[Rfam]
RNA sequence: AAGCGGGGACGACCCCGCCUCUCUAAUUCGCACGGGGACGGCCCC
Numbered sequence: 001a002a003g004c005g006g007g008g009a010c011g012a013c014c015c016c017g018c019c020u021c022u023c024u025a026a027u028u029c030g031c032a033c034g035g036g037g038a039c040g041g042c043c044c045c
Stems, first nucleotide, its partner, number of pairs: 001020001003018006034045004